[Rfam]
RNA: U7 small nuclear RNA
RNA sequence: AAGCAUUACAGCUCUUUUAGAAUUUGUCUUGUAGGUUUUCUGUUUUGUUUUGUUUUCUCUGGAAGCACCCCC
Numbered sequence: 001a002a003g004c005a006u007u008a009c010a011g012c013u014c015u016u017u018u019a020g021a022a023u024u025u026g027u028c029u030u031g032u033a034g035g036u037u038u039u040c041u042g043u044u045u046u047g048u049u050u051u052g053u054u055u056u057c058u059c060u061g062g063a064a065g066c067a068c069c070c071c072c
Base pairs, nucleotide, nucleotide: 034069035068036067037065038064039063040062041061042060